The record is a 285-nucleotide sequence from Heterocephalus glaber, which matches "Mason-Pfizer monkey virus packaging signal" in Rfam.
RNA sequence: UGGCGCCCAACGUGGGGCCCAAGAAUGUGGGAUCCAGUGCAAAACGCUGCUCGGGGGCCCAAUGAAAUAAAAGUGACAAAUAAAAUAGAAAAAAGAGGAUUGCAUUUGACAUGAACCUGCUGUCUUUCCUGCACCUCGUUCAGUUGAGCAGCGAUUAUGGGACAAGAGAUUAGCCAACAGGAGUUGUUUGUAAAAGGUCUUAAAAAAACUUUACAGGCAUGAGGGUAAAGGUUACAGUCAAACAGUUGUUAAAAUAUUUUGAUUAUAUUAGAGAUCUCUGCCCUU
Numbered sequence: 001u002g003g004c005g006c007c008c009a010a011c012g013u014g015g016g017g018c019c020c021a022a023g024a025a026u027g028u029g030g031g032a033u034c035c036a037g038u039g040c041a042a043a044a045c046g047c048u049g050c051u052c053g054g055g056g057g058c059c060c061a062a063u064g065a066a067a068u069a070a071a072a073g074u075g076a077c078a079a080a081u082a083a084a085a086u087a088g089a090a091a092a093a094a095g096a097g098g099a100u101u102g103c104a105u106u107u108g109a110c111a112u113g114a115a116c117c118u119g120c121u122g123u124c125u126u127u128c129c130u131g132c133a134c135c136u137c138g139u140u141c142a143g144u145u146g147a148g149c150a151g152c153g154a155u156u157a158u159g160g161g162a163c164a165a166g167a168g169a170u171u172a173g174c175c176a177a178c179a180g181g182a183g184u185u186g187u188u189u190g191u192a193a194a195a196g197g198u199c200u201u202a203a204a205a206a207a208a209c210u211u212u213a214c215a216g217g218c219a220u221g222a223g224g225g226u227a228a229a230g231g232u233u234a235c236a237g238u239c240a241a242a243c244a245g246u247u248g249u250u251a252a253a254a255u256a257u258u259u260u261g262a263u264u265a266u267a268u269u270a271g272a273g274a275u276c277u278c279u280g281c282c283c284u285u
Stems, first nucleotide, its partner, number of pairs: 006031003012026002095141003098137002102132003108124004144165003149161001152159002170213001172211001173209001220261005225255002229247002232244001270285002273282001275280001
Notes: This family represents a group of sequences that are related to the Mason-Pfizer monkey virus (MPMV) packaging signal. It scores 76 bits against the family's covariance model.